Shown here is a 275-nucleotide sequence from Smittium simulii, a member of the family "ACEA small nucleolar RNA U3". Its Rfam clan is "U3 clan". Rfam classes the family as a C/D-box small nucleolar RNA. The source organism's lineage runs through Eukaryota, Opisthokonta, Fungi, Harpellomycetes and Smittium. The match comes from Rfam's covariance-model search (75 bits). The literature on the family includes a 2010 paper in RNA Biol by Marz and Stadler, "Comparative analysis of eukaryotic U3 snoRNA". Small nucleolar RNAs (snoRNAs) are involved in the processing and modification of rRNA in the nucleolus. There are two main classes of snoRNAs: the box C/D class, and the box H/ACA class. U3 snoRNA is a member of the box C/D class. Indeed, the box C/D element is a subset of the six short sequence elements found in all U3 snoRNAs, namely boxes A, A', B, C, C', and D. The U3 snoRNA secondary structure is characterised by a small 5' domain (with boxes A and A'), and a larger 3' domain (with boxes B, C, C', and D), the two domains being linked by a single-stranded hinge. Boxes B and C form the B/C motif, which appears to be exclusive to U3 snoRNAs, and boxes C' and D form the C'/D motif. The latter is functionally similar to the C/D motifs found in other snoRNAs. The 5' domain and the hinge region act as a pre-rRNA-binding domain. The 3' domain has conserved protein-binding sites. Both the box B/C and box C'/D motifs are sufficient for nuclear retention of U3 snoRNA. The box C'/D motif is also necessary for nucleolar localisation, stability and hyper-methylation of U3 snoRNA. Both box B/C and C'/D motifs are involved in specific protein interactions and are necessary for the rRNA processing functions of U3 snoRNA.
[Rfam]
Nucleotides: 275
Stems, first nucleotide, its partner, number of pairs: 003039001006034001008033004016027001018025001045068002048065002051062002075274005094262005099256006109219004119207003124201001232247002235244001
Number, partner (000 for none) and nucleotide at each position: 001000u002000c003039g004000a005000c006034u007000g008033u009032a010031c011030u012000u013000a014000c015000a016027a017000g018025g019000a020000u021000c022000u023000u024000g025018u026000a027016u028000a029000c030011a031010g032009u033008a034006a035000a036000c037000a038000a039003c040000u041000u042000u043000g044000c045068c046067u047000u048065u049064g050000u051062u052061u053000c054000a055000g056000a057000a058000c059000a060000a061052a062051g063000u064049c065048g066000c067046a068045g069000c070000a071000a072000c073000c074000a075274g076273g077272c078271u079270g080000g081000a082000c083000g084000a085000u086000g087000a088000u089000u090000u091000a092000u093000a094262c095261u096260g097259c098258a099256c100255u101254g102253c103252c104251c105000g106000u107000a108000a109219a110218g111217g112216g113000a114000a115000g116000u117000g118000u119207g120206u121205g122000a123000u124201g125000a126000a127000u128000a129000c130000a131000g132000u133000u134000g135000u136000g137000c138000u139000u140000u141000a142000a143000g144000u145000a146000u147000u148000g149000u150000a151000u152000a153000g154000a155000u156000g157000a158000a159000g160000u161000g162000u163000u164000u165000g166000c167000u168000c169000a170000c171000u172000g173000a174000a175000c176000c177000u178000a179000u180000u181000c182000a183000u184000u185000a186000u187000u188000u189000a190000u191000g192000g193000c194000u195000g196000g197000c198000g199000a200000u201124u202000c203000a204000u205121c206120a207119c208000g209000u210000u211000g212000a213000u214000g215000a216112u217111c218110u219109u220000g221000c222000g223000a224000g225000c226000u227000g228000u229000u230000u231000a232247c233246u234000u235244g236000u237000u238000a239000a240000a241000u242000g243000g244235c245000g246233a247232g248000c249000a250000a251104g252103g253102g254101c255100a256099g257000a258098u259097g260096c261095a262094g263000a264000u265000u266000c267000u268000g269000a270079c271078a272077g273076c274075c275000c